SAH (S-adenosyl-L-homocysteine) riboswitch aptamer: an 86-nucleotide sequence from Candidatus Methylospira mobilis.
[Rfam]
Nucleotides: 086
Stems, first nucleotide, its partner, number of pairs: 002055001004053005021042003025038001
Number, partner (000 for none) and nucleotide at each position: 001000c002055u003000g004053g005052c006051u007050g008049a009000g010000g011000a012000g013000c014000g015000u016000u017000g018000c019000g020000a021042c022041g023040g024000c025038c026000c027000g028000g029000a030000u031000u032000u033000a034000c035000g036000g037000a038025g039000c040023c041022c042021g043000c044000c045000a046000g047000g048000c049008u050007c051006a052005g053004c054000a055002a056000a057000g058000c059000a060000c061000a062000u063000g064000g065000g066000a067000u068000u069000a070000a071000a072000c073000g074000g075000c076000g077000c078000u079000c080000g081000g082000u083000u084000c085000g086000a
About this RNA:
Gene Ontology terms of the family: regulation of gene expression and S-adenosylhomocysteine metabolic process. Pairs were carried over by alignment from the consensus structure, which is taken from published work. The organism belongs to Candidatus Methylospira, within Bacteria.